[Rfam]
RNA: DUF2815 RNA
RNA sequence: ACGGGAAGACGAACCAACCCGUACUUAAGUUUGGUUCUUACGUUAAUAAAGGAAAUACAAAAUG
Numbered sequence: 001a002c003g004g005g006a007a008g009a010c011g012a013a014c015c016a017a018c019c020c021g022u023a024c025u026u027a028a029g030u031u032u033g034g035u036u037c038u039u040a041c042g043u044u045a046a047u048a049a050a051g052g053a054a055a056u057a058c059a060a061a062a063u064g
Base pairs, nucleotide, nucleotide: 001022002021003020004019011037012036013035014034015033016032017031
Dot-bracket structure: [[[[......(((((((.]]]]........)))))))...........................